About this RNA
Rfam assigns this 83-nucleotide RNA from Nonomuraea aridisoli to the family "ZMP/ZTP riboswitch aptamer (pfl RNA motif)".
RNA sequence: ACAGCGAGACGCGACUGGCGCAUUGGGUGGGAACGACCACCGGGGAGCGGAGGGAGCGGAGGCCGUGCGCCUGGGUCUUCGCC
Numbered sequence: 001a002c003a004g005c006g007a008g009a010c011g012c013g014a015c016u017g018g019c020g021c022a023u024u025g026g027g028u029g030g031g032a033a034c035g036a037c038c039a040c041c042g043g044g045g046a047g048c049g050g051a052g053g054g055a056g057c058g059g060a061g062g063c064c065g066u067g068c069g070c071c072u073g074g075g076u077c078u079u080c081g082c083c
Base pairs, nucleotide, nucleotide: 005054010049011048012047015044016043017071018070019069020068021067027040028039029038030037060078061077062076063075064074
The base pairs follow the family's consensus structure, which is taken from published work.
Its family is annotated with one-carbon metabolic process and regulation of purine nucleotide biosynthetic process in the Gene Ontology.